This 103-nucleotide RNA from Trinickia caryophylli belongs to the Rfam family "Glycine riboswitch aptamer". A search with the family's covariance model found it, with a score of 48 bits. Pairs were carried over by alignment from the consensus structure. Rfam's curators write: This family represents the bacterial glycine riboswitch.
RNA sequence: CGCACGCGCCGGGAGAGUGCGCGCGAUGGGCUCCAUGCCCGUUGCCAGCGCCGCCGAAGGGGCACACCCGCAAACUCUCAGGCAAAAGGACCGGUCGCGUCGA
Numbered sequence: 001c002g003c004a005c006g007c008g009c010c011g012g013g014a015g016a017g018u019g020c021g022c023g024c025g026a027u028g029g030g031c032u033c034c035a036u037g038c039c040c041g042u043u044g045c046c047a048g049c050g051c052c053g054c055c056g057a058a059g060g061g062g063c064a065c066a067c068c069c070g071c072a073a074a075c076u077c078u079c080a081g082g083c084a085a086a087a088g089g090a091c092c093g094g095u096c097g098c099g100u101c102g103a
Stems, first nucleotide, its partner, number of pairs: 006098001008095005019051004053083003056079002060077003